[Rfam]
RNA sequence: GGUCUGGUGUCAUGUCUAUGCCAGAUGCUAUGAUUAGAUCCAAGUAAUAUUUUCACAUUUAAAUAGGAAAGUGUGGAUUGAUUUUACAACAUUUAUCCAUGGGACUAUUUUUUGCGACUAUAUAU
Numbered sequence: 001g002g003u004c005u006g007g008u009g010u011c012a013u014g015u016c017u018a019u020g021c022c023a024g025a026u027g028c029u030a031u032g033a034u035u036a037g038a039u040c041c042a043a044g045u046a047a048u049a050u051u052u053u054c055a056c057a058u059u060u061a062a063a064u065a066g067g068a069a070a071g072u073g074u075g076g077a078u079u080g081a082u083u084u085u086a087c088a089a090c091a092u093u094u095a096u097c098c099a100u101g102g103g104a105c106u107a108u109u110u111u112u113u114g115c116g117a118c119u120a121u122a123u124a125u
Stems, first nucleotide, its partner, number of pairs: 002039007009031001013027005053117002056114002066106002072101002075098004

Rfam assigns this 125-nucleotide RNA sequence from Thalictrum thalictroides to the family "Small nucleolar RNA snoR2/U65". Lineage of the source: Eukaryota > Euphyllophyta > Ranunculales > Ranunculaceae > Thalictrum. Its family is annotated with nucleolus and RNA processing in the Gene Ontology.